A member of the RNA family "Small nucleolar RNA snoR53Y" from Jatropha curcas, 83 nucleotides long.
By type it is a C/D-box small nucleolar RNA.
Taxonomically the source falls in Jatropha (Eukaryota, Euphyllophyta, Pentapetalae, Jatropheae).
Clan: snoR53 clan.
RNA sequence: GUUCCCAGUGAUGCUUCUUGAUGAUCCAUGCUAAUGCUGAUGCUAGCAUGACUGAAACUCUUCUCUAUUUGCCUGAGGGAACU
Dot-bracket structure: (((((........................................................................))))).